[Rfam]
RNA: Small nucleolar RNA SNORD24
Organism: Physeter macrocephalus
RNA sequence: UGCAGGUGAUGCAGGCGAAUGCUUGCUGUCUGAGAGGUGGUGAUGCCAUUUUAAAGCACCGAGAUCGCUGAUGCA
Dot-bracket structure: ((((...................................................................))))